This 100-nucleotide RNA belongs to the Rfam family "L4-Archaeoglobi ribosomal protein leades". The sequence is in the family's curated seed alignment.

RNA sequence: CUGAUGGACGCGUUCGGGUCAAUUGCGGCUUGCAACACCCGAUCUCGCUGGUCGAUCCCACCGACGUGGGACUCGACGAGGGAGAGCGUGUGACCGUCAG
Numbered sequence: 001c002u003g004a005u006g007g008a009c010g011c012g013u014u015c016g017g018g019u020c021a022a023u024u025g026c027g028g029c030u031u032g033c034a035a036c037a038c039c040c041g042a043u044c045u046c047g048c049u050g051g052u053c054g055a056u057c058c059c060a061c062c063g064a065c066g067u068g069g070g071a072c073u074c075g076a077c078g079a080g081g082g083a084g085a086g087c088g089u090g091u092g093a094c095c096g097u098c099a100g
Stems, first nucleotide, its partner, number of pairs: 001100005008091006015041004023035005043085004048080002051077005